The record is a 53-nucleotide sequence from Shewanella aestuarii, which matches "L31-Gammaproteobacteria ribosomal protein leader" in Rfam. The organism belongs to Shewanella, within Bacteria. On this family, see Eckert and Weinberg, BMC Microbiol 2020: "Discovery of 20 novel ribosomal leader candidates in bacteria and archaea".
RNA sequence: CAUGUGGUGUCCAACUUCGGGUUGUGAUAGCGACAUGGCCUUCAAAUUGAGGU
Numbered sequence: 001c002a003u004g005u006g007g008u009g010u011c012c013a014a015c016u017u018c019g020g021g022u023u024g025u026g027a028u029a030g031c032g033a034c035a036u037g038g039c040c041u042u043c044a045a046a047u048u049g050a051g052g053u
Stems, first nucleotide, its partner, number of pairs: 001037005007031002011026001012024004